The family of this 204-nucleotide RNA sequence from Oryza sativa is "MIR812 microRNA precursor family".
RNA sequence: AAAAAGACAAACCCUGGUUUCCGUGUCCAACGUUUAACCGUCCGUCUUAUUUAAAAAAUUAUGAAAAAAAUUAAAAACACAAGUUACGUAUAAAAUAUUAAUCGUGUUUUAUCAUCUAACAAUAAUGAAAAUACGAAUUAUAAAAAAAUUUCAUAUAAGACGGACAGUUAAAGUUAGAUACGAAAAUCCAGGGUUUGUCUUUUU
Numbered sequence: 001a002a003a004a005a006g007a008c009a010a011a012c013c014c015u016g017g018u019u020u021c022c023g024u025g026u027c028c029a030a031c032g033u034u035u036a037a038c039c040g041u042c043c044g045u046c047u048u049a050u051u052u053a054a055a056a057a058a059u060u061a062u063g064a065a066a067a068a069a070a071u072u073a074a075a076a077a078c079a080c081a082a083g084u085u086a087c088g089u090a091u092a093a094a095a096u097a098u099u100a101a102u103c104g105u106g107u108u109u110u111a112u113c114a115u116c117u118a119a120c121a122a123u124a125a126u127g128a129a130a131a132u133a134c135g136a137a138u139u140a141u142a143a144a145a146a147a148a149u150u151u152c153a154u155a156u157a158a159g160a161c162g163g164a165c166a167g168u169u170a171a172a173g174u175u176a177g178a179u180a181c182g183a184a185a186a187u188c189c190a191g192g193g194u195u196u197g198u199c200u201u202u203u204u
Stems, first nucleotide, its partner, number of pairs: 026178002029175003033172006040165011
Gene Ontology terms of the family: miRNA-mediated post-transcriptional gene silencing and RISC complex. The source organism's lineage runs through Eukaryota, Tracheophyta, Euphyllophyta, Spermatophyta and Oryza sativa. Rfam 15.1 lists 57,451 matches to the family in 24 species. The family's consensus secondary structure was predicted with RNAalifold.